[Rfam]
RNA sequence: GUCUCUCUGGUGCAGUGGUUCUAGACAGUUCAACAGUUCUUUUCCAAAAUUGUGAAAUGUUUAGGACCACUUGAUCAGGA
Numbered sequence: 001g002u003c004u005c006u007c008u009g010g011u012g013c014a015g016u017g018g019u020u021c022u023a024g025a026c027a028g029u030u031c032a033a034c035a036g037u038u039c040u041u042u043u044c045c046a047a048a049a050u051u052g053u054g055a056a057a058u059g060u061u062u063a064g065g066a067c068c069a070c071u072u073g074a075u076c077a078g079g080a
Stems, first nucleotide, its partner, number of pairs: 014071006021064002024061004029056004
Shown here is an 80-nucleotide RNA sequence from Polypterus senegalus, a member of the family "mir-203 microRNA precursor family". The source organism's lineage runs through Eukaryota, Metazoa, Bilateria, Craniata and Polypterus. A reference for the family is Lim et al. (2003), "Vertebrate microRNA genes", Science. Pairs were carried over by alignment from the consensus structure, which was predicted with RNAalifold. Rfam links the family to the GO terms miRNA-mediated post-transcriptional gene silencing and RISC complex.